RNA sequence: UGGUCCCUGCCUGACCGAAUGCUGACGUGAUGCGUCAGCGGCUUAUGUAGGUCUGGUGGGGUCCG
Numbered sequence: 001u002g003g004u005c006c007c008u009g010c011c012u013g014a015c016c017g018a019a020u021g022c023u024g025a026c027g028u029g030a031u032g033c034g035u036c037a038g039c040g041g042c043u044u045a046u047g048u049a050g051g052u053c054u055g056g057u058g059g060g061g062u063c064c065g
Stems, first nucleotide, its partner, number of pairs: 001065003005061007013053004020040009
The record is a 65-nucleotide RNA sequence, which matches "DUF3800-VIII RNA" in Rfam. The base pairs follow the family's consensus structure, which is taken from published work. Rfam classes the family as a small RNA.